[Rfam]
RNA: Small nucleolar SNORD12/SNORD106
RNA sequence: GCCUUUGCAGCUGAUGACUUACCUUUUUUCCCCAUCAGAUCGACCCUGUUGAUCUAUGCUAUUAGCCAGUUUUGUCUGAUGCAUUGGC
Numbered sequence: 001g002c003c004u005u006u007g008c009a010g011c012u013g014a015u016g017a018c019u020u021a022c023c024u025u026u027u028u029u030c031c032c033c034a035u036c037a038g039a040u041c042g043a044c045c046c047u048g049u050u051g052a053u054c055u056a057u058g059c060u061a062u063u064a065g066c067c068a069g070u071u072u073u074g075u076c077u078g079a080u081g082c083a084u085u086g087g088c
Base pairs, nucleotide, nucleotide: 001088002087003086006083007082008081009080